Guanidine-II riboswitch aptamer (mini-ykkC): a 49-nucleotide RNA from Allobosea sp. Root381. About the family: Simpler in structure and has fewer highly conserved nucleotide positions than the ykkC-yxkD leader. Despite this each of its two stem-loop structures directly bind free guanidine. Therefore, mini-ykkC RNA motif represents a distinct class of guanidine-sensing RNAs. Its crystal structure was also determined. Taxonomically the source falls in Allobosea (Bacteria, Pseudomonadati, Alphaproteobacteria, Alloboseaceae).
[Rfam]
RNA sequence: UCGCGAGGACGACCUCCCCAUUUCGGGUCGACAUGCCGGGACGGCCCGG
Numbered sequence: 001u002c003g004c005g006a007g008g009a010c011g012a013c014c015u016c017c018c019c020a021u022u023u024c025g026g027g028u029c030g031a032c033a034u035g036c037c038g039g040g041a042c043g044g045c046c047c048g049g
Stems, first nucleotide, its partner, number of pairs: 001020001003018001005016004036049005
The literature on the family includes a 2007 paper in Nucleic Acids Res by Weinberg et al., "Identification of 22 candidate structured RNAs in bacteria using the CMfinder comparative genomics pipeline". Rfam 15.1 lists 1,589 matches to the family in 1,229 species.